[Rfam]
Annotation
A member of the RNA family "ZMP/ZTP riboswitch aptamer (pfl RNA motif)" from Cryptosporangium arvum, 84 nucleotides long. The literature on the family includes a 2015 paper in Nat Struct Mol Biol by Jones and Ferre-D'Amare, "Recognition of the bacterial alarmone ZMP through long-distance association of two RNA subdomains". Pairs were carried over by alignment from the consensus structure, which is taken from published work. Its family is annotated with regulation of purine nucleotide biosynthetic process and one-carbon metabolic process in the Gene Ontology. It scores 48 bits against the family's covariance model.
RNA sequence: ACCGGUAGACGCGACUGGCGGCACUGGGAUGGUCCGAACCAUCGGGGAGCCUCUCCGCGGGAGUCGACCGCCUGGGCUUCCGCA
Dot-bracket structure: ..(((.(((.((..(([[[[[.......((((......))))..))..)).))))))...(((((..]]]]]..))))).....